[Rfam]
RNA sequence: AAGCCGGGACGACCCGGCUUUUUCUUUGCAUAUCGGGCGGGGACGACCCUG
Numbered sequence: 001a002a003g004c005c006g007g008g009a010c011g012a013c014c015c016g017g018c019u020u021u022u023u024c025u026u027u028g029c030a031u032a033u034c035g036g037g038c039g040g041g042g043a044c045g046a047c048c049c050u051g
Stems, first nucleotide, its partner, number of pairs: 001020008038051005
This 51-nucleotide RNA from Ferrovibrio terrae belongs to the Rfam family "Guanidine-II riboswitch aptamer (mini-ykkC)". The family's consensus secondary structure is taken from published work. The match comes from Rfam's covariance-model search (42 bits). On this family, see Sherlock et al., Biochemistry 2017: "Biochemical Validation of a Second Guanidine Riboswitch Class in Bacteria".